[Rfam]
RNA sequence: UCGCACGCGGGAGGCGAUGACGCGCGGCCCAAGCCCCGGCCGCCGGGACCGUGCCGAGCCACCGGCGGGACCGACUCGCGUGGAG
Numbered sequence: 001u002c003g004c005a006c007g008c009g010g011g012a013g014g015c016g017a018u019g020a021c022g023c024g025c026g027g028c029c030c031a032a033g034c035c036c037c038g039g040c041c042g043c044c045g046g047g048a049c050c051g052u053g054c055c056g057a058g059c060c061a062c063c064g065g066c067g068g069g070a071c072c073g074a075c076u077c078g079c080g081u082g083g084a085g
Stems, first nucleotide, its partner, number of pairs: 001085001004082008013060003022054006029047001038072002040068005
c-di-GMP-II-GAG riboswitch aptamer: an 85-nucleotide sequence. Gene Ontology terms of the family: cyclic-di-GMP binding and regulation of gene expression. It is one of the family's seed sequences. The base pairs follow the family's consensus structure, which is taken from published work. Its Rfam clan is "c-di-GMP_II riboswitch clan".